[Rfam]
RNA sequence: UGGCAUUGCACACUGCAUGCCGAUGAUUAUUUUUUUAGAUGACUUGUAAUAGGAGAUAUCCAUAUGUUAUCUGCAGACGUAAAAGCGCAGAUCGUAGCUGAAAACGCACGCGGUGAA
Number, nucleotide and partner (000 for none) at each position: 001u000002g021003g020004c019005a018006u000007u000008g000009c000010a000011c000012a000013c000014u000015g000016c000017a000018u005019g004020c003021c002022g000023a000024u000025g000026a000027u000028u000029a000030u000031u000032u000033u000034u000035u000036u000037a000038g071039a070040u069041g068042a067043c066044u000045u000046g000047u000048a000049a000050u000051a000052g000053g000054a000055g000056a000057u000058a000059u000060c000061c000062a000063u000064a000065u000066g043067u042068u041069a040070u039071c038072u000073g000074c000075a000076g000077a000078c000079g000080u000081a000082a000083a000084a000085g000086c000087g000088c000089a000090g000091a000092u000093c000094g000095u000096a000097g000098c000099u000100g000101a000102a000103a000104a000105c000106g000107c000108a000109c000110g000111c000112g000113g000114u000115g000116a000117a000
The record is a 117-nucleotide RNA sequence from Pelagibaculum spongiae, which matches "Ribosomal S15 leader" in Rfam.
It scores 41 bits against the family's covariance model.
The family's consensus secondary structure is taken from published work.
About the family: The E. coli Ribosomal S15 gene 5' UTR can form two alternative structures. One that is a series of three hairpins, The other includes a pseudoknot. This structure causes translational regulation of the S15 protein.
NCBI's taxonomy places the organism under Bacteria, Pseudomonadota, Gammaproteobacteria, Oceanospirillales, Pelagibaculum.